Shown here is a 95-nucleotide RNA sequence from Brassica rapa, a member of the family "Small nucleolar RNA R64/Z200 family". Taxonomically the source falls in Brassica (Eukaryota, Viridiplantae, Mesangiospermae, Gunneridae). Pairs were carried over by alignment from the consensus structure, which was predicted with PFOLD. The family's RNA type in Rfam is C/D-box small nucleolar RNA.

RNA sequence: AUCCAGCGGUGAUGAUUUUAUGAAAAAUUCACAUGUCAGACUUCAGAGAUUCUUAACGAAUCAGUGAGAAUGAAUUCAUAUUUUCUGAGCAGAAG
Numbered sequence: 001a002u003c004c005a006g007c008g009g010u011g012a013u014g015a016u017u018u019u020a021u022g023a024a025a026a027a028u029u030c031a032c033a034u035g036u037c038a039g040a041c042u043u044c045a046g047a048g049a050u051u052c053u054u055a056a057c058g059a060a061u062c063a064g065u066g067a068g069a070a071u072g073a074a075u076u077c078a079u080a081u082u083u084u085c086u087g088a089g090c091a092g093a094a095g
Stems, first nucleotide, its partner, number of pairs: 002094001004092001006090002048062004